[Rfam]
RNA sequence: AUAUGCCUGGCUCCCUGUAUGCCAUUUGCAGAGCCCACCGGAGGAUCGAUGGCCUCCGUGGAUGGCGUAUGAGGAGCCAAGCAUAU
Numbered sequence: 001a002u003a004u005g006c007c008u009g010g011c012u013c014c015c016u017g018u019a020u021g022c023c024a025u026u027u028g029c030a031g032a033g034c035c036c037a038c039c040g041g042a043g044g045a046u047c048g049a050u051g052g053c054c055u056c057c058g059u060g061g062a063u064g065g066c067g068u069a070u071g072a073g074g075a076g077c078c079a080a081g082c083a084u085a086u
Base pairs, nucleotide, nucleotide: 001086002085003084004083005082006081008079009078010077011076012075013074014073016071017070018069019068020067021066022065023064024063027060028059029058
mir-160 microRNA precursor family: an 86-nucleotide RNA sequence from Tripterygium wilfordii. A reference for the family is Rhoades et al. (2002), "Prediction of plant microRNA targets", Cell.